Rfam assigns this 88-nucleotide RNA sequence from Laribacter hongkongensis to the family "Neisseria metabolic switch regulator b (RcoF1/NgncR163)".
Sibling sRNA described and independently named in three publications.
It scores 52 bits against the family's covariance model.
The source organism's lineage runs through Bacteria, Pseudomonadati, Neisseriales, Laribacter and Laribacter hongkongensis.
The family's RNA type in Rfam is small RNA.
The base pairs follow the family's consensus structure, which was predicted with RNAfold.
The literature on the family includes a 2017 paper in MBio by Pannekoek et al., "Neisseria meningitidis Uses Sibling Small Regulatory RNAs To Switch from Cataplerotic to Anaplerotic Metabolism".
Its family is annotated with mRNA binding, tricarboxylic acid cycle and regulation of translation, ncRNA-mediated in the Gene Ontology.

[Rfam]
RNA sequence: UUGCAUCUGAACCGCAGUUGGUUCGAUGUAGUUUCUCCUCUAUUUCUCCUUUGCAGACUUCUGCGCCGCCCUUUAGCGGCGCAUUUUU
Numbered sequence: 001u002u003g004c005a006u007c008u009g010a011a012c013c014g015c016a017g018u019u020g021g022u023u024c025g026a027u028g029u030a031g032u033u034u035c036u037c038c039u040c041u042a043u044u045u046c047u048c049c050u051u052u053g054c055a056g057a058c059u060u061c062u063g064c065g066c067c068g069c070c071c072u073u074u075a076g077c078g079g080c081g082c083a084u085u086u087u088u
Base pairs, nucleotide, nucleotide: 003029004028005027006026007025009023010022039057040056041055043053063082064081065080066079067078068077069076